[Rfam]
RNA sequence: UGUCAGUGGAGUCCAGAAACCACUCAAAUCAACGGGGCAAUACCGAAAAGCCACAAGAGUAGGAGUUUA
Numbered sequence: 001u002g003u004c005a006g007u008g009g010a011g012u013c014c015a016g017a018a019a020c021c022a023c024u025c026a027a028a029u030c031a032a033c034g035g036g037g038c039a040a041u042a043c044c045g046a047a048a049a050g051c052c053a054c055a056a057g058a059g060u061a062g063g064a065g066u067u068u069a
Stems, first nucleotide, its partner, number of pairs: 006023004036052003043063002